[Rfam]
RNA: Actinobacteria sRNA Ms_IGR-5
Organism: Streptomyces seoulensis
RNA sequence: ACACGGAAGGGAGGUGGUUCGGCAGAUGUAUGGAAACCGGACGCGUGAGGUGGCUGCGGGCUAGCGGCCCGUCACCACACCGAGUGCGGUGCCGGACCAGUACGUGAAGCAAGCGUGCGGCCGGCCCAAUCCCAAGCAGUCACCCGACCCGCGAGUUCGCCGGCACGUCCGGCCGGCUCCCCCGCCGCACGGCGGAGGAACCAGAACUCGCGGGUCGUUUCCG
Numbered sequence: 001a002c003a004c005g006g007a008a009g010g011g012a013g014g015u016g017g018u019u020c021g022g023c024a025g026a027u028g029u030a031u032g033g034a035a036a037c038c039g040g041a042c043g044c045g046u047g048a049g050g051u052g053g054c055u056g057c058g059g060g061c062u063a064g065c066g067g068c069c070c071g072u073c074a075c076c077a078c079a080c081c082g083a084g085u086g087c088g089g090u091g092c093c094g095g096a097c098c099a100g101u102a103c104g105u106g107a108a109g110c111a112a113g114c115g116u117g118c119g120g121c122c123g124g125c126c127c128a129a130u131c132c133c134a135a136g137c138a139g140u141c142a143c144c145c146g147a148c149c150c151g152c153g154a155g156u157u158c159g160c161c162g163g164c165a166c167g168u169c170c171g172g173c174c175g176g177c178u179c180c181c182c183c184g185c186c187g188c189a190c191g192g193c194g195g196a197g198g199a200a201c202c203a204g205a206a207c208u209c210g211c212g213g214g215u216c217g218u219u220u221c222c223g
Stems, first nucleotide, its partner, number of pairs: 014057005059126004064121002067118002070115003145217013159177006